This 164-nucleotide RNA sequence from Sciurus vulgaris belongs to the Rfam family "U1 spliceosomal RNA". The family is grouped with related families in Rfam's "U1 clan". NCBI's taxonomy places the organism under Eukaryota, Metazoa, Bilateria, Eutheria, Sciurus.
RNA sequence: AUACUUACCUGACAGGGAAGAAAAUAUAAUCACGAAGGUGGUUUUCCCAGGGCGAGUCUUAUCCAUUGCACUCCUGAUGUACUGACCCCUGAGAUUUCCCCAAAUGUGGGAAACUAAACUGCAUACUUUUGGGUAGUGGGGGACUGCCUUCACACUUGCCCUUG
Numbered sequence: 001a002u003a004c005u006u007a008c009c010u011g012a013c014a015g016g017g018a019a020g021a022a023a024a025u026a027u028a029a030u031c032a033c034g035a036a037g038g039u040g041g042u043u044u045u046c047c048c049a050g051g052g053c054g055a056g057u058c059u060u061a062u063c064c065a066u067u068g069c070a071c072u073c074c075u076g077a078u079g080u081a082c083u084g085a086c087c088c089c090u091g092a093g094a095u096u097u098c099c100c101c102a103a104a105u106g107u108g109g110g111a112a113a114c115u116a117a118a119c120u121g122c123a124u125a126c127u128u129u130u131g132g133g134u135a136g137u138g139g140g141g142g143a144c145u146g147c148c149u150u151c152a153c154a155c156u157u158g159c160c161c162u163u164g
Base pairs, nucleotide, nucleotide: 013121014120015119016048017047019045020044021043023042025040026039027038049090050089051088052087054086056083060079061078062077063076094115095113096112097111099109100108138163139162140161141160142159146155